A member of the RNA family "L17-Actino-Proteobacteria ribosomal protein leader" from Actinacidiphila oryziradicis, 56 nucleotides long. The organism belongs to Actinacidiphila, within Bacteria. The match comes from Rfam's covariance-model search (69 bits). Rfam classes the family as a cis-regulatory leader. Pairs were carried over by alignment from the consensus structure, which is taken from published work.

RNA sequence: CGCUGAGGCGACCGCCUCAGAGGUACUGACACCGGUACCUGAUACGGCCGGUGCAG
Numbered sequence: 001c002g003c004u005g006a007g008g009c010g011a012c013c014g015c016c017u018c019a020g021a022g023g024u025a026c027u028g029a030c031a032c033c034g035g036u037a038c039c040u041g042a043u044a045c046g047g048c049c050g051g052u053g054c055a056g
Stems, first nucleotide, its partner, number of pairs: 001022001003020007026056003030053007